[Rfam]
RNA sequence: GCGGCGUGGCCCACGGCGUCUCCCACAUGUCGGGUCCCGGCCGUUAGGCUGAAUCGGUGCGCUCCGUCACGGAGCCGCAUAGCCGACAGCCGUCGCAUCCCAGGGAGCACAUCCAUG
Numbered sequence: 001g002c003g004g005c006g007u008g009g010c011c012c013a014c015g016g017c018g019u020c021u022c023c024c025a026c027a028u029g030u031c032g033g034g035u036c037c038c039g040g041c042c043g044u045u046a047g048g049c050u051g052a053a054u055c056g057g058u059g060c061g062c063u064c065c066g067u068c069a070c071g072g073a074g075c076c077g078c079a080u081a082g083c084c085g086a087c088a089g090c091c092g093u094c095g096c097a098u099c100c101c102a103g104g105g106a107g108c109a110c111a112u113c114c115a116u117g
Stems, first nucleotide, its partner, number of pairs: 058079004062074004082096002085094003
Shown here is a 117-nucleotide RNA sequence from Streptomyces marincola, a member of the family "Streptomyces-metH RNA". Lineage of the source: Bacteria > Bacillati > Actinomycetota > Kitasatosporales > Streptomyces. The family's RNA type in Rfam is small RNA. The family's consensus secondary structure is taken from published work.